[Rfam]
RNA sequence: GCCAGAAGAUGACGACGUGUGCAGAAACCCCCCUGUGGGCUGCCCACGUCCGAGCCCCCUGGC
Number, nucleotide and partner (000 for none) at each position: 001g063002c062003c061004a060005g059006a000007a000008g000009a000010u000011g000012a000013c000014g050015a049016c048017g047018u046019g045020u000021g043022c042023a041024g000025a000026a000027a000028c000029c039030c038031c037032c000033c000034u000035g000036u000037g031038g030039g029040c000041u023042g022043c021044c000045c019046a018047c017048g016049u015050c014051c000052g000053a000054g000055c000056c000057c000058c000059c005060u004061g003062g002063c001
This 63-nucleotide RNA from Canis lupus belongs to the Rfam family "Selenocysteine insertion sequence 1".
The family's consensus secondary structure is taken from published work.
The incorporation of selenocysteine into a protein sequence is directed by an in-frame UGA codon (usually a stop codon) within the coding region of the mRNA. Selenoprotein mRNAs contain a conserved secondary structure in the 3' UTR that is required for the distinction of UGA stop from UGA selenocysteine.
Lineage of the source: Eukaryota > Dipnotetrapodomorpha > Tetrapoda > Carnivora > Canis lupus.